The record is an 83-nucleotide RNA sequence from Macleaya cordata, which matches "Small nucleolar RNA Z159/U59" in Rfam.
The match comes from Rfam's covariance-model search (58 bits).
The literature on the family includes a 2003 paper in Nucleic Acids Res by Chen et al., "The high diversity of snoRNAs in plants: identification and comparative study of 120 snoRNA genes from Oryza sativa".
Rfam classes the family as a C/D-box small nucleolar RNA.
The family has 10 seed sequences and 1,401 matches in Rfam 15.1.

RNA sequence: GUCUCUGAGGAUGAUUAAAAGAAAACUUUCGUUCUUCCGAGAUAAUCCAUAUGGAAAAUAAUGGAGACCUAAACUGAAGAGCC
Numbered sequence: 001g002u003c004u005c006u007g008a009g010g011a012u013g014a015u016u017a018a019a020a021g022a023a024a025a026c027u028u029u030c031g032u033u034c035u036u037c038c039g040a041g042a043u044a045a046u047c048c049a050u051a052u053g054g055a056a057a058a059u060a061a062u063g064g065a066g067a068c069c070u071a072a073a074c075u076g077a078a079g080a081g082c083c
Stems, first nucleotide, its partner, number of pairs: 003081004